[Rfam]
A member of the RNA family "Arthropod 7SK RNA" from Chrysodeixis includens, 281 nucleotides long. By type it is a non-coding RNA gene. Lineage of the source: Eukaryota > Eumetazoa > Panarthropoda > Altocrustacea > Chrysodeixis. For this family Rfam cites "Arthropod 7SK RNA" (Gruber et al., Mol Biol Evol, 2008). Rfam 15.1 lists 229 matches to the family in 137 species.
RNA sequence: GGAAGUGUGUUCUUUAGUGUGAUGUUACAACUGUAUAUAGAUCACUAGCUCUCGUUAGAAGGUCUACAGCACGUGACGUCACGCGCUCGUUGCCAGGCAACGCUCCUUGUAAUGUGCGCCGCGGACGCUCGCCCGCGCGGCUGCGACGGACUUGUGGCGCACGUUCCUUGGGCUGCCUUCCUGAACCUUACGCGGUUUUAGUUAACUCGUUAGCUUAGCUCCGGUUAAAUUGAGCACUUCCAUAUCAUGGCGGCGAGAACCCUCGAAUGCCAGUUUUUUGG
Numbered sequence: 001g002g003a004a005g006u007g008u009g010u011u012c013u014u015u016a017g018u019g020u021g022a023u024g025u026u027a028c029a030a031c032u033g034u035a036u037a038u039a040g041a042u043c044a045c046u047a048g049c050u051c052u053c054g055u056u057a058g059a060a061g062g063u064c065u066a067c068a069g070c071a072c073g074u075g076a077c078g079u080c081a082c083g084c085g086c087u088c089g090u091u092g093c094c095a096g097g098c099a100a101c102g103c104u105c106c107u108u109g110u111a112a113u114g115u116g117c118g119c120c121g122c123g124g125a126c127g128c129u130c131g132c133c134c135g136c137g138c139g140g141c142u143g144c145g146a147c148g149g150a151c152u153u154g155u156g157g158c159g160c161a162c163g164u165u166c167c168u169u170g171g172g173c174u175g176c177c178u179u180c181c182u183g184a185a186c187c188u189u190a191c192g193c194g195g196u197u198u199u200a201g202u203u204a205a206c207u208c209g210u211u212a213g214c215u216u217a218g219c220u221c222c223g224g225u226u227a228a229a230u231u232g233a234g235c236a237c238u239u240c241c242a243u244a245u246c247a248u249g250g251c252g253g254c255g256a257g258a259a260c261c262c263u264c265g266a267a268u269g270c271c272a273g274u275u276u277u278u279u280g281g
Stems, first nucleotide, its partner, number of pairs: 001241008019082005031069003037065001040064004045058003249271003